A member of the RNA family "Phenylalanine leader peptide" from Klebsiella variicola, 125 nucleotides long. For this family Rfam cites "Nucleotide sequence of the leader region of the phenylalanine operon of Escherichia coli" (Zurawski et al., Proc Natl Acad Sci U S A, 1978). Rfam 15.1 lists 379 matches to the family in 290 species. The family's RNA type in Rfam is cis-regulatory leader.
RNA sequence: CAUGAAACGUGUCCCGUUCUUCUUCGCAUUCUUUUUUACCUUCCCCUGACCGGGAGGCAAUUCGUCGUAUAAGAAAGAAUGCGAAGACGAACAAUAAGGCCUCCCACCCGGGAGGCCUUUUUUAU
Number, nucleotide and partner (000 for none) at each position: 001c000002a000003u000004g000005a000006a000007a000008c000009g000010u000011g000012u000013c000014c000015c000016g092017u091018u090019c089020u000021u087022c086023u085024u084025c083026g082027c081028a080029u079030u078031c077032u076033u075034u074035u000036u072037u071038a070039c000040c000041u000042u055043c054044c053045c052046c000047u000048g000049a000050c000051c000052g045053g044054g043055a042056g066057g065058c064059a000060a000061u000062u000063c000064g058065u057066c056067g000068u000069a000070u038071a037072a036073g000074a034075a033076a032077g031078a030079a029080u028081g027082c026083g025084a024085a023086g022087a021088c000089g019090a018091a017092c016093a000094a000095u000096a119097a118098g117099g116100c115101c114102u113103c112104c111105c110106a000107c000108c000109c000110g105111g104112g103113a102114g101115g100116c099117c098118u097119u096120u000121u000122u000123u000124a000125u000